Shown here is a 68-nucleotide sequence from Rhizobium sp. P32RR-XVIII, a member of the family "S-element".
A search with the family's covariance model found it, with a score of 63 bits.
About the family: This family represents a group of S-elements from p42d and related plasmids.
Taxonomically the source falls in Rhizobium (Bacteria, Pseudomonadota, Alphaproteobacteria, Hyphomicrobiales).

[Rfam]
Nucleotides: 068
Base pairs, nucleotide, nucleotide: 010063012061013060014059016058017057018056019055022054023053024052025051026050027049029047031045032044033043034042035041
Number, partner (000 for none) and nucleotide at each position: 001000u002000g003000u004000c005000a006000a007000g008000a009000a010063u011000a012061u013060u014059u015000g016058c017057g018056c019055u020000a021000g022054u023053u024052u025051c026050g027049g028000c029047g030000a031045g032044c033043g034042g035041a036000u037000u038000u039000c040000u041035u042034u043033u044032g045031c046000c047029u048000c049027u050026u051025g052024a053023a054022a055019g056018g057017u058016g059014a060013a061012g062000g063010a064000a065000c066000a067000u068000g
Overview:
Pairs were carried over by alignment from the consensus structure, which is taken from published work. Rfam classes the family as a cis-regulatory element. The family has 29 seed sequences and 231 matches in Rfam 15.1.